[Rfam]
The record is a 77-nucleotide RNA sequence from Parvimonas micra, which matches "dfrA-dnaX RNA" in Rfam. Pairs were carried over by alignment from the consensus structure, which is taken from published work. The sequence is in the family's curated seed alignment.
RNA sequence: ACGUCAUAUGAUAAAGGUAUAGUAAUUUUAUUAUAAUAACCUUAAUUUUAGCAAUCAUAGAGAAAUUAUGGUAUAAU
Numbered sequence: 001a002c003g004u005c006a007u008a009u010g011a012u013a014a015a016g017g018u019a020u021a022g023u024a025a026u027u028u029u030a031u032u033a034u035a036a037u038a039a040c041c042u043u044a045a046u047u048u049u050a051g052c053a054a055u056c057a058u059a060g061a062g063a064a065a066u067u068a069u070g071g072u073a074u075a076a077u
Base pairs, nucleotide, nucleotide: 030072031071032070033069034068035067036066037065